[Rfam]
RNA: TPP riboswitch aptamer (THI element)
Organism: Ruegeria marina
RNA sequence: CGCCAACCGUUGGGGUGCCCCGUGUGGGGCUGAGAGGCGCGGAUGCGUCAACCCAUCGAACCUGAUCCGGGCAAUACCGGCGUAGGGAACGGUCUCGCACUUUCG
Dot-bracket structure: .....(((((((((..(((((....)))))......((((....))))...)))).....((((..((((......))))..))))..)))))............